Description
A member of the RNA family "sraA" from Enterobacillus tribolii, 94 nucleotides long. Lineage of the source: Bacteria > Pseudomonadati > Pseudomonadota > Hafniaceae > Enterobacillus. Rfam classes the family as a small RNA.
RNA sequence: GUGUAAAUGAGUAUAUGGGGAUGUAUUACAGGGAUUCAACGGUAACGAUAGCAGAAAAAAAUGGGAGAACAAUUCUCCCAUUUUAUCGUUAACU
Numbered sequence: 001g002u003g004u005a006a007a008u009g010a011g012u013a014u015a016u017g018g019g020g021a022u023g024u025a026u027u028a029c030a031g032g033g034a035u036u037c038a039a040c041g042g043u044a045a046c047g048a049u050a051g052c053a054g055a056a057a058a059a060a061a062u063g064g065g066a067g068a069a070c071a072a073u074u075c076u077c078c079c080a081u082u083u084u085a086u087c088g089u090u091a092a093c094u
Base pairs, nucleotide, nucleotide: 008038010036011035012034016032019029059083060082061081062080063079064078065077066076067075068074069073